[Rfam]
RNA sequence: ACACGAGAAGGGAGGUGGUUCGGCAGAUGUAUGGAAACCGGACGCGUGAGGUGACUGCGGGCUAGCGCCCGUCACCACACCAUGUGCGGUGCCGGAUCAGCGUGUGCGAACACGCCGCCGGCCCAGUCUCAAGCAGUCACCCGACCCGCGGGCUGCCGGUACGUCCGGCCGGCUCCUCUCCGAGGAACCCAGCCCGCGGGUCGUCUGCG
Numbered sequence: 001a002c003a004c005g006a007g008a009a010g011g012g013a014g015g016u017g018g019u020u021c022g023g024c025a026g027a028u029g030u031a032u033g034g035a036a037a038c039c040g041g042a043c044g045c046g047u048g049a050g051g052u053g054a055c056u057g058c059g060g061g062c063u064a065g066c067g068c069c070c071g072u073c074a075c076c077a078c079a080c081c082a083u084g085u086g087c088g089g090u091g092c093c094g095g096a097u098c099a100g101c102g103u104g105u106g107c108g109a110a111c112a113c114g115c116c117g118c119c120g121g122c123c124c125a126g127u128c129u130c131a132a133g134c135a136g137u138c139a140c141c142c143g144a145c146c147c148g149c150g151g152g153c154u155g156c157c158g159g160u161a162c163g164u165c166c167g168g169c170c171g172g173c174u175c176c177u178c179u180c181c182g183a184g185g186a187a188c189c190c191a192g193c194c195c196g197c198g199g200g201u202c203g204u205c206u207g208c209g
Stems, first nucleotide, its partner, number of pairs: 015058005060123004065118002067115002142203013155173006